The record is a 70-nucleotide sequence from Xenopus tropicalis, which matches "mir-1 microRNA precursor family" in Rfam. The organism belongs to Silurana, within Eukaryota. Its family is annotated with miRNA-mediated post-transcriptional gene silencing and RISC complex in the Gene Ontology. The literature on the family includes a 2001 paper in Science by Lee and Ambros, "An extensive class of small RNAs in Caenorhabditis elegans".
[Rfam]
RNA sequence: GAGGUCACAUGCUUCUUUAUAUACCCAUAUGAACUACAUUGUUAUGGAAUGUAAGGAAGUGUGUGGCUUC
Numbered sequence: 001g002a003g004g005u006c007a008c009a010u011g012c013u014u015c016u017u018u019a020u021a022u023a024c025c026c027a028u029a030u031g032a033a034c035u036a037c038a039u040u041g042u043u044a045u046g047g048a049a050u051g052u053a054a055g056g057a058a059g060u061g062u063g064u065g066g067c068u069u070c
Stems, first nucleotide, its partner, number of pairs: 004067019025047005
Rfam's curators put it in the seed alignment.